[Rfam]
RNA sequence: UGGAGUAGUGGUCUCCUCACUUCGCAUUUUCCAUUAGUGAGAUUCAACUCCUCCAACUUAGCUCC
Numbered sequence: 001u002g003g004a005g006u007a008g009u010g011g012u013c014u015c016c017u018c019a020c021u022u023c024g025c026a027u028u029u030u031c032c033a034u035u036a037g038u039g040a041g042a043u044u045c046a047a048c049u050c051c052u053c054c055a056a057c058u059u060a061g062c063u064c065c
Stems, first nucleotide, its partner, number of pairs: 001055005008049001009047001014042002017040005
RNA: mir-1175 microRNA precursor family
Organism: Portunus trituberculatus